A member of the RNA family "ivy-DE RNA" from Stutzerimonas stutzeri, 87 nucleotides long. The family's RNA type in Rfam is cis-regulatory element. Rfam's curators put it in the seed alignment. Lineage of the source: Bacteria > Pseudomonadota > Pseudomonadales > Pseudomonadaceae > Stutzerimonas stutzeri.

RNA sequence: GAACCAUGGGGUCGGGUUGUUCUGCCUGGCGGAACGACCUAGGGGUACAGGGAGUACCUCCAUUUACUGGACCGGGUUCUGCAAGCU
Numbered sequence: 001g002a003a004c005c006a007u008g009g010g011g012u013c014g015g016g017u018u019g020u021u022c023u024g025c026c027u028g029g030c031g032g033a034a035c036g037a038c039c040u041a042g043g044g045g046u047a048c049a050g051g052g053a054g055u056a057c058c059u060c061c062a063u064u065u066a067c068u069g070g071a072c073c074g075g076g077u078u079c080u081g082c083a084a085g086c087u
Stems, first nucleotide, its partner, number of pairs: 001079005010073004014040005020034006042060007